[Rfam]
Shown here is a 148-nucleotide sequence from Rousettus aegyptiacus, a member of the family "Small nucleolar RNA SNORA57". On this family, see Vitali et al., Nucleic Acids Res 2003: "Identification of 13 novel human modification guide RNAs". The base pairs follow the family's consensus structure, which was predicted with PFOLD. The organism belongs to Rousettus, within Eukaryota. Rfam's curators write: U99 belongs to the H/ACA class of snoRNAs which are thought to guide the sites of modification of uridines to pseudouridines, the target for this family is unknown. Rfam 15.1 lists 1,736 matches to the family in 530 species. Rfam links the family to the GO terms nucleolus and RNA processing.

RNA sequence: CCUCCUCUUGUUGGCGGGGAUGGGGCAUGUUUCCCAAUCCCCAUACUGUACGGAGGCAGAGGGAAAGGGCUCCAGCCGCCUUGACGUCAUACCUUUGGUGCCAGCGGCUUCCAGUUCUCCAAUUCUCUCUUCAAGCACCGGGACACAG
Dot-bracket structure: (((((..........(((((..(((.......)))..))))).........))))).........................((..((................(.((........)).)...............))..))........